[Rfam]
RNA sequence: AACUCAUCCAGAGGGGUGGAGGGAUCGGCCCUAUGAAACCCCGGCAACCGCGAGCAGCAAUGUUCGGUCUGGUGCUAAUUCCGACAGAAUGAUUCUGGGAGAUGAGGG
Numbered sequence: 001a002a003c004u005c006a007u008c009c010a011g012a013g014g015g016g017u018g019g020a021g022g023g024a025u026c027g028g029c030c031c032u033a034u035g036a037a038a039c040c041c042c043g044g045c046a047a048c049c050g051c052g053a054g055c056a057g058c059a060a061u062g063u064u065c066g067g068u069c070u071g072g073u074g075c076u077a078a079u080u081c082c083g084a085c086a087g088a089a090u091g092a093u094u095c096u097g098g099g100a101g102a103u104g105a106g107g108g
Stems, first nucleotide, its partner, number of pairs: 003106006013042005021031003025084004043076004048072002050068002080100001085097005